[Rfam]
RNA sequence: UAGAACAAUGUAGAUAAGGGAAGUCGGCAAAAUAGAUCCGUAACUUCGGGAUAAGGAUUGGCUCUAAGGGUUGGGUACGUUGGGCCUUGGUUUUGAACAAUUGCUGGACUGGUUAGGAACUGUCUGACUCCCCGGAAGACGGAUAGAUCUUGACUAGACCUUGGCAGUUGGGAUGGCCUUGGUAAGGCCUCUACUUUGUAGAGUGUCCCUCACUGGCGUACGCUUAACAACCAACUUAGAACUGGUACGGACAAGCGGACUAUCUAACUAAAUCUAAUUAAAACAUAGCAUUGCGAUGGCCAGAAAGUGGUGUUGACGCAAUGUGAUUUCUGCCCAGUGCUCUGAAUGUCAAAGUGAAGAAAUUCAACCAAGCGCGGGUAAACGGCGGGAGUAACUAUGACUCUCUUAAGGUAGCCAAAUGCCUCGUCAUCUAAUUAGUGACGCGCAUGAAUGGAUUAACGAGAUUCCCACUGUCCCUAUCUACUAUCUAGCGAAACCACAGCCAAGGGAACGGGCUUGGCAAA
Number, nucleotide and partner (000 for none) at each position: 001u490002a489003g488004a487005a000006c000007a000008a000009u000010g484011u483012a482013g481014a480015u479016a478017a000018g476019g475020g474021a000022a000023g000024u000025c000026g000027g000028c000029a000030a000031a000032a000033u000034a000035g059036a058037u057038c056039c055040g000041u000042a000043a000044c049045u000046u000047c000048g000049g044050g000051a000052u000053a000054a000055g039056g038057a037058u036059u035060g243061g242062c000063u240064c239065u238066a237067a236068g235069g232070g231071u230072u229073g228074g000075g221076u220077a219078c218079g217080u216081u215082g214083g213084g183085c182086c181087u000088u000089g178090g177091u176092u000093u000094u000095g000096a000097a000098c170099a169100a168101u167102u166103g165104c164105u163106g162107g159108a000109c157110u156111g155112g154113u153114u152115a151116g150117g149118a148119a000120c146121u145122g144123u143124c142125u141126g140127a000128c000129u000130c000131c000132c000133c000134g000135g000136a000137a000138g000139a000140c126141g125142g124143a123144u122145a121146g120147a000148u118149c117150u116151u115152g114153a113154c112155u111156a110157g109158a000159c107160c000161u000162u106163g105164g104165c103166a102167g101168u100169u099170g098171g000172g000173a000174u000175g000176g091177c090178c089179u000180u000181g086182g085183u084184a000185a000186g000187g000188c000189c000190u000191c000192u000193a000194c000195u000196u000197u000198g000199u000200a000201g000202a000203g000204u000205g000206u000207c000208c000209c000210u000211c000212a000213c083214u082215g081216g080217c079218g078219u077220a076221c075222g000223c000224u000225u000226a000227a000228c073229a072230a071231c070232c069233a000234a000235c068236u067237u066238a065239g064240a063241a000242c061243u060244g248245g000246u000247a000248c244249g000250g000251a000252c000253a000254a000255g000256c000257g468258g467259a466260c000261u000262a465263u464264c463265u461266a000267a000268c000269u285270a000271a000272a000273u283274c000275u000276a000277a000278u000279u000280a000281a000282a000283a273284c000285a269286u000287a000288g324289c323290a322291u321292u320293g319294c318295g317296a000297u000298g000299g311300c310301c309302a308303g000304a000305a000306a000307g000308u302309g301310g300311u299312g000313u000314u000315g000316a000317c295318g294319c293320a292321a291322u290323g289324u288325g000326a000327u000328u455329u454330c453331u000332g386333c385334c384335c000336a000337g383338u382339g379340c378341u377342c376343u000344g375345a000346a000347u374348g373349u372350c000351a000352a000353a000354g000355u366356g365357a364358a363359g000360a000361a000362a000363u358364u357365c356366a355367a000368c000369c000370a000371a000372g349373c348374g347375c344376g342377g341378g340379u339380a000381a000382a338383c337384g334385g333386c332387g405388g404389g403390a402391g401392u400393a000394a000395c000396u000397a000398u000399g000400a392401c391402u390403c389404u388405c387406u410407u000408a000409a000410g406411g000412u000413a000414g000415c000416c000417a000418a000419a000420u000421g000422c000423c000424u000425c000426g442427u441428c440429a439430u438431c000432u000433a000434a000435u000436u000437a000438g430439u429440g428441a427442c426443g000444c000445g000446c000447a000448u000449g000450a000451a000452u000453g330454g329455a328456u000457u000458a000459a000460c000461g265462a000463g264464a263465u262466u259467c258468c257469c000470a000471c000472u000473g000474u020475c019476c018477c000478u016479a015480u014481c013482u012483a011484c010485u000486a000487u004488c003489u002490a001491g000492c000493g000494a000495a000496a000497c000498c000499a000500c000501a000502g000503c520504c519505a518506a517507g516508g000509g000510a000511a000512c000513g000514g000515g000516c507517u506518u505519g504520g503521c000522a000523a000524a000
The record is a 524-nucleotide part of an RNA from Schizosaccharomyces japonicus, which matches "Eukaryotic large subunit ribosomal RNA" in Rfam. Rfam 15.1 lists 107,465 matches to the family in 2,616 species. The match comes from Rfam's covariance-model search (3308 bits). Gene Ontology terms of the family: structural constituent of ribosome and ribosome.